[Rfam]
RNA sequence: CCUAUUGGAACCCCGGCCCUGAUCGCCUAUAUUGGGGGUGUCCGGGUUCGCCCGGACUAUAGCGAUAAACGCGCUUGUAAUAAGCGGACCGGACCCGGGUGCGAUUCCCGGCGGCUCCACCACCUUCUUCCCCGCGUUAUCGGCGGAGGCAGCAUGGGGCCGACUAGCAUCGACGGACGUGUAAAGAAGAUUGCUUUCGCUCGUCCUGGCCCACCGUAUCGGGCCUUUAUCUAAAUGCGAACGAUAACUUCGCUGAGGAAUACGCUGUCGCCGCGUAAUGCGGUUCCGGCAUUUCCGACCUAAGUCCUGAGGGUUCAGAUCCUCAGGCGGGGCCCGGGAGGCGCCUGGCAACAGAAGCCUCCCACU
Numbered sequence: 001c002c003u004a005u006u007g008g009a010a011c012c013c014c015g016g017c018c019c020u021g022a023u024c025g026c027c028u029a030u031a032u033u034g035g036g037g038g039u040g041u042c043c044g045g046g047u048u049c050g051c052c053c054g055g056a057c058u059a060u061a062g063c064g065a066u067a068a069a070c071g072c073g074c075u076u077g078u079a080a081u082a083a084g085c086g087g088a089c090c091g092g093a094c095c096c097g098g099g100u101g102c103g104a105u106u107c108c109c110g111g112c113g114g115c116u117c118c119a120c121c122a123c124c125u126u127c128u129u130c131c132c133c134g135c136g137u138u139a140u141c142g143g144c145g146g147a148g149g150c151a152g153c154a155u156g157g158g159g160c161c162g163a164c165u166a167g168c169a170u171c172g173a174c175g176g177a178c179g180u181g182u183a184a185a186g187a188a189g190a191u192u193g194c195u196u197u198c199g200c201u202c203g204u205c206c207u208g209g210c211c212c213a214c215c216g217u218a219u220c221g222g223g224c225c226u227u228u229a230u231c232u233a234a235a236u237g238c239g240a241a242c243g244a245u246a247a248c249u250u251c252g253c254u255g256a257g258g259a260a261u262a263c264g265c266u267g268u269c270g271c272c273g274c275g276u277a278a279u280g281c282g283g284u285u286c287c288g289g290c291a292u293u294u295c296c297g298a299c300c301u302a303a304g305u306c307c308u309g310a311g312g313g314u315u316c317a318g319a320u321c322c323u324c325a326g327g328c329g330g331g332g333c334c335c336g337g338g339a340g341g342c343g344c345c346u347g348g349c350a351a352c353a354g355a356a357g358c359c360u361c362c363c364a365c366u
Stems, first nucleotide, its partner, number of pairs: 040057007061201005071194003074189003085179002089176003095111005112162007202216002208225005330346004337362006
The family of this 366-nucleotide RNA from Brevundimonas abyssalis is "Alphaproteobacteria transfer-messenger RNA".
Rfam classes the family as a non-coding RNA gene.
The organism belongs to Brevundimonas abyssalis, within Bacteria.